This 102-nucleotide sequence from Candidatus Viadribacter manganicus belongs to the Rfam family "Glycine riboswitch aptamer".
Rfam links the family to the GO term glycine biosynthetic process.
The match comes from Rfam's covariance-model search (55 bits).
The source organism's lineage runs through Bacteria, Pseudomonadati, Hyphomonadales, Hyphomonadaceae and Candidatus Viadribacter.
RNA sequence: AACACGCUGGAAAGAGCGCUGGACCAAGGGUCAGCGCCGCCGACGGAGUAAGCCGCGAACUGAUGCGGUGAAUCUCUCAGGCGCCAGGACAGCGGGGGCUGC
Numbered sequence: 001a002a003c004a005c006g007c008u009g010g011a012a013a014g015a016g017c018g019c020u021g022g023a024c025c026a027a028g029g030g031u032c033a034g035c036g037c038c039g040c041c042g043a044c045g046g047a048g049u050a051a052g053c054c055g056c057g058a059a060c061u062g063a064u065g066c067g068g069u070g071a072a073u074c075u076c077u078c079a080g081g082c083g084c085c086a087g088g089a090c091a092g093c094g095g096g097g098g099c100u101g102c
Stems, first nucleotide, its partner, number of pairs: 003096001005094005016037006039082003042078002046076003052069005